[Rfam]
Shown here is a 122-nucleotide sequence from Pomacea canaliculata, a member of the family "U4atac minor spliceosomal RNA". The family has 61 seed sequences and 1,648 matches in Rfam 15.1. The organism belongs to Pomacea, within Eukaryota. For this family Rfam cites "Evolutionary conservation of minor U12-type spliceosome between plants and humans" (Lorkovic et al., RNA, 2005). The match comes from Rfam's covariance-model search (74 bits). The family's consensus secondary structure is taken from published work. Rfam's curators write: U4atac is an essential component of the minor U12-type spliceosome complex which is required for removal of the rarer class of eukaryotic introns (AT-AC, U12-type).
RNA sequence: ACCGUCUUUAUCUUGGGGUGAGAGCUUGCUCAAGGAUCGUAUGGAGAGAGCAAGACUGCUGACACCAUAGCUAAAGCUAAAUAUCGCAUCAUUCUUCAUAGGAUGGUGCAAUUUUUGACACC
Numbered sequence: 001a002c003c004g005u006c007u008u009u010a011u012c013u014u015g016g017g018g019u020g021a022g023a024g025c026u027u028g029c030u031c032a033a034g035g036a037u038c039g040u041a042u043g044g045a046g047a048g049a050g051c052a053a054g055a056c057u058g059c060u061g062a063c064a065c066c067a068u069a070g071c072u073a074a075a076g077c078u079a080a081a082u083a084u085c086g087c088a089u090c091a092u093u094c095u096u097c098a099u100a101g102g103a104u105g106g107u108g109c110a111a112u113u114u115u116u117g118a119c120a121c122c
Stems, first nucleotide, its partner, number of pairs: 006018004020059001022057001025054007037045002086109010